[Rfam]
RNA sequence: UGGAGGAUUGAGAAGGUAAGGCAGCUUUUUAACUGUGCUGCACUUACUGGUAGAAACCUCCCAUAUUAAAAUAAUGCCAGAAGUGUGUUCUAAGCUACAGUGCAUCAUUGUUGCUAACACACAUCACUGCUGCAUACACUGU
Numbered sequence: 001u002g003g004a005g006g007a008u009u010g011a012g013a014a015g016g017u018a019a020g021g022c023a024g025c026u027u028u029u030u031a032a033c034u035g036u037g038c039u040g041c042a043c044u045u046a047c048u049g050g051u052a053g054a055a056a057c058c059u060c061c062c063a064u065a066u067u068a069a070a071a072u073a074a075u076g077c078c079a080g081a082a083g084u085g086u087g088u089u090c091u092a093a094g095c096u097a098c099a100g101u102g103c104a105u106c107a108u109u110g111u112u113g114c115u116a117a118c119a120c121a122c123a124u125c126a127c128u129g130c131u132g133c134a135u136a137c138a139c140u141g142u
Stems, first nucleotide, its partner, number of pairs: 002061005015048004021041005075134003079131002082128003
Shown here is a 142-nucleotide sequence from Scyliorhinus torazame, a member of the family "Small nucleolar RNA SNORA47". It scores 60 bits against the family's covariance model. A reference for the family is Huttenhofer et al. (2001), "RNomics: an experimental approach that identifies 201 candidates for novel, small, non-messenger RNAs in mouse", EMBO J. NCBI's taxonomy places the organism under Eukaryota, Opisthokonta, Gnathostomata, Elasmobranchii, Scyliorhinus. Rfam 15.1 lists 733 matches to the family in 635 species. Rfam classes the family as an H/ACA-box small nucleolar RNA.